[Rfam]
Description: The record is a 158-nucleotide RNA from Speluncibacter jeojiensis, which matches "c-di-AMP riboswitch aptamer (ydaO/yuaA leader)" in Rfam. Its family is annotated with regulation of gene expression and cyclic-di-AMP binding in the Gene Ontology. Taxonomically the source falls in Speluncibacter (Bacteria, Bacillati, Actinomycetota, Mycobacteriales). This family represents a conserved RNA structure found upstream of the ydaO and yuaA genes in Bacillus subtilis and related genes in other bacteria.

RNA sequence: CGCAGGUCACCGCCUAAUCGGAGCCCUCGGGCACCGAGCCGGGAACCCACGUUAUUUGGGGUGAAUCCCCUUGGGCCGCUUGCGGCCUGAAGGGGUAGGGCUGCUCUUCCCAGCCCGAACCCGUCAGCUAACCCGGUCGGCGGCCCGAUGGAAGAAUG
Number, nucleotide and partner (000 for none) at each position: 001c000002g000003c000004a000005g000006g000007u000008c000009a000010c000011c142012g141013c140014c139015u000016a000017a000018u037019c036020g035021g000022a000023g000024c000025c000026c000027u000028c000029g000030g000031g000032c000033a000034c000035c020036g019037a018038g137039c136040c135041g134042g133043g132044a000045a000046c000047c000048c058049a057050c000051g000052u000053u000054a000055u000056u000057u049058g048059g122060g121061g120062u000063g000064a000065a000066u000067c095068c094069c093070c092071u091072u090073g000074g000075g000076c000077c000078g000079c000080u000081u000082g000083c000084g000085g000086c000087c000088u000089g000090a072091a071092g070093g069094g068095g067096u000097a000098g116099g115100g114101c113102u000103g000104c000105u000106c000107u000108u000109c000110c000111c000112a000113g101114c100115c099116c098117g000118a000119a000120c061121c060122c059123g000124u000125c000126a000127g000128c000129u000130a000131a000132c043133c042134c041135g040136g039137u038138c000139g014140g013141c012142g011143g000144c000145c000146c000147g000148a000149u000150g000151g000152a000153a000154g000155a000156a000157u000158g000